[Rfam]
RNA sequence: GACGAUUAUAUUGUCCUGUCACAGCAGUAAUGCAUUACUUUAUUAUGCUGCUGUUUCGGGACAUUUGUAUCGUU
Numbered sequence: 001g002a003c004g005a006u007u008a009u010a011u012u013g014u015c016c017u018g019u020c021a022c023a024g025c026a027g028u029a030a031u032g033c034a035u036u037a038c039u040u041u042a043u044u045a046u047g048c049u050g051c052u053g054u055u056u057c058g059g060g061a062c063a064u065u066u067g068u069a070u071c072g073u074u
Stems, first nucleotide, its partner, number of pairs: 003072004012063007022053008

mir-1000 microRNA precursor family: a 74-nucleotide sequence from Polypedilum vanderplanki. Pairs were carried over by alignment from the consensus structure, which was predicted with RNAalifold. Rfam links the family to the GO terms miRNA-mediated post-transcriptional gene silencing, negative regulation of glutamate secretion, neurotransmission and RISC complex.